[Rfam]
RNA sequence: GGGGGAAAGACUUAGAAUCCUCCGUGAGCUAUGUGUAAAUAGUGGUGUCUUUGGCCGGGCAUUGCGGUUUGUGAAUC
Numbered sequence: 001g002g003g004g005g006a007a008a009g010a011c012u013u014a015g016a017a018u019c020c021u022c023c024g025u026g027a028g029c030u031a032u033g034u035g036u037a038a039a040u041a042g043u044g045g046u047g048u049c050u051u052u053g054g055c056c057g058g059g060c061a062u063u064g065c066g067g068u069u070u071g072u073g074a075a076u077c
Base pairs, nucleotide, nucleotide: 001023002022003021004020005019006018036071037070038069039068040067042065043064044063045062046061047060048059049058050057

The family of this 77-nucleotide sequence is "L13-Bacteroidia ribosomal protein leader". On this family, see Eckert and Weinberg, BMC Microbiol 2020: "Discovery of 20 novel ribosomal leader candidates in bacteria and archaea". The base pairs follow the family's consensus structure, which is taken from published work. The family's RNA type in Rfam is cis-regulatory leader.